[Rfam]
RNA sequence: UGUUCAGUGGUUCGUAACCAUCCCACUAUAAAAAACUAAGGAAUG
Dot-bracket structure: .....(((((....[[......))))).........]].......
Rfam assigns this 45-nucleotide RNA from Basilea psittacipulmonis to the family "PreQ1 (pre queuosine) riboswitch aptamer". Pairs were carried over by alignment from the consensus structure. Rfam 15.1 lists 873 matches to the family in 692 species. Rfam's curators write: This family is a bacterial riboswitch that binds to the metabolite preQ1, an intermediate in the biosynthesis of the modified nucleoside queuosine from GTP. One example of this riboswitch is located in the leader of the Bacillus subtilis ykvJKLM (queCDEF) operon which encodes four genes necessary for queuosine production. PreQ1 binding to the riboswitch aptamer is thought to induce premature transcription termination within the leader to down-regulate expression of these genes.